[Rfam]
RNA sequence: CUUGCAGGAUAGUGUGUAUUGGCUUAACGCUUUGUUUUAUGCGUCUUAUGCUGAAAGUGUUUCCUGCUAUAUCAAUAUGGAAAGUGGGCAGUUGGGUUAAGCUUUGUGCUUUCUUCAACAAUCAUUCUCCAUUCAUCU
Dot-bracket structure: ...((((((....((((((...................))))))................).))))).........(((((.(((((...((((.....................))))..))))).)))))......
Numbered sequence: 001c002u003u004g005c006a007g008g009a010u011a012g013u014g015u016g017u018a019u020u021g022g023c024u025u026a027a028c029g030c031u032u033u034g035u036u037u038u039a040u041g042c043g044u045c046u047u048a049u050g051c052u053g054a055a056a057g058u059g060u061u062u063c064c065u066g067c068u069a070u071a072u073c074a075a076u077a078u079g080g081a082a083a084g085u086g087g088g089c090a091g092u093u094g095g096g097u098u099a100a101g102c103u104u105u106g107u108g109c110u111u112u113c114u115u116c117a118a119c120a121a122u123c124a125u126u127c128u129c130c131a132u133u134c135a136u137c138u
Stems, first nucleotide, its partner, number of pairs: 004067005009061001014044006077132005083126005091119004
Overview
The record is a 138-nucleotide RNA from Brachypodium distachyon, which matches "small nucleolar RNA snoR135" in Rfam. Its family is annotated with RNA processing and nucleolus in the Gene Ontology. Lineage of the source: Eukaryota > Mesangiospermae > Liliopsida > Petrosaviidae > Brachypodium. A reference for the family is Chen and Wu (2009), "Mining small RNA sequencing data: a new approach to identify small nucleolar RNAs in Arabidopsis", Nucleic Acids Res. The family's consensus secondary structure was predicted with RNAalifold. The family's RNA type in Rfam is H/ACA-box small nucleolar RNA. It scores 97 bits against the family's covariance model.